Rfam assigns this 72-nucleotide sequence from Brassicogethes aeneus to the family "mir-305 microRNA precursor family". On this family, see Weaver et al., Genome Biol 2007: "Computational and transcriptional evidence for microRNAs in the honey bee genome". Lineage of the source: Eukaryota > Allotriocarida > Neuropteroidea > Cucujiformia > Brassicogethes. Pairs were carried over by alignment from the consensus structure, which was predicted with RNAalifold.

RNA sequence: CAUGUCUAUUGUACUUCAUCAGGUGCUCUGGUGUUUUUUUCUCCCGACACCUGUUGGCGUACACUAACUAUG
Numbered sequence: 001c002a003u004g005u006c007u008a009u010u011g012u013a014c015u016u017c018a019u020c021a022g023g024u025g026c027u028c029u030g031g032u033g034u035u036u037u038u039u040u041c042u043c044c045c046g047a048c049a050c051c052u053g054u055u056g057g058c059g060u061a062c063a064c065u066a067a068c069u070a071u072g
Base pairs, nucleotide, nucleotide: 001072002071003070004069010063011062012061014059016057017056018055020053021052023050024049025048027046030044031043